Shown here is a 121-nucleotide RNA sequence from Zizania palustris, a member of the family "Small nucleolar RNA SNORD14". The base pairs follow the family's consensus structure, which was predicted with PFOLD. Its family is annotated with nucleolus and RNA processing in the Gene Ontology. Lineage of the source: Eukaryota > Viridiplantae > Poaceae > Zizaniinae > Zizania. By type it is a C/D-box small nucleolar RNA.
RNA sequence: UGCGAAUGAAGACAAAUUCAAGGCUUCUUUCUCAUAACAUUCGCAGUUGCCGCCUAAGAGCUUUCGCCCUGCCAGGCUUGAGAGCUAAUGCUGCAAAUUCCUUCCUUGGAUGUCUGAUGCA
Numbered sequence: 001u002g003c004g005a006a007u008g009a010a011g012a013c014a015a016a017u018u019c020a021a022g023g024c025u026u027c028u029u030u031c032u033c034a035u036a037a038c039a040u041u042c043g044c045a046g047u048u049g050c051c052g053c054c055u056a057a058g059a060g061c062u063u064u065c066g067c068c069c070u071g072c073c074a075g076g077c078u079u080g081a082g083a084g085c086u087a088a089u090g091c092u093g094c095a096a097a098u099u100c101c102u103u104c105c106u107u108g109g110a111u112g113u114c115u116g117a118u119g120c121a
Stems, first nucleotide, its partner, number of pairs: 001121004060085006